The record is a 178-nucleotide RNA from Anaerotignum neopropionicum, which matches "Lysine riboswitch aptamer" in Rfam. Gene Ontology term of the family: lysine biosynthetic process. Lineage of the source: Bacteria > Bacillati > Lachnospirales > Anaerotignaceae > Anaerotignum.
[Rfam]
RNA sequence: UCUUGAAGUAGAGGUGCGUUAUACAUGAGUACUCGGGCGAAUAUCAUAAGGGAUAAGGGCCGUCCGCAGAAAGGGUCAAACGCCGAAGAGGGAAAAAGCCUUUUCUUUUUUUCUCUGGUUGUCCGGUUAAGAACCGUACAACUGUCAUUGGUACCCCCAAUGGAGCGCUACAAACUAA
Numbered sequence: 001u002c003u004u005g006a007a008g009u010a011g012a013g014g015u016g017c018g019u020u021a022u023a024c025a026u027g028a029g030u031a032c033u034c035g036g037g038c039g040a041a042u043a044u045c046a047u048a049a050g051g052g053a054u055a056a057g058g059g060c061c062g063u064c065c066g067c068a069g070a071a072a073g074g075g076u077c078a079a080a081c082g083c084c085g086a087a088g089a090g091g092g093a094a095a096a097a098g099c100c101u102u103u104u105c106u107u108u109u110u111u112u113c114u115c116u117g118g119u120u121g122u123c124c125g126g127u128u129a130a131g132a133a134c135c136g137u138a139c140a141a142c143u144g145u146c147a148u149u150g151g152u153a154c155c156c157c158c159a160a161u162g163g164a165g166c167g168c169u170a171c172a173a174a175c176u177a178a
Base pairs, nucleotide, nucleotide: 008171009170010169011168016083017082018081019080020079023076024075034066035065036064037063038062039061087116088115089114090113091112092111093110094109095108096107097106098105117143118142119141120140121139122138124136125135126134127133145163146162147161148160149159150158151157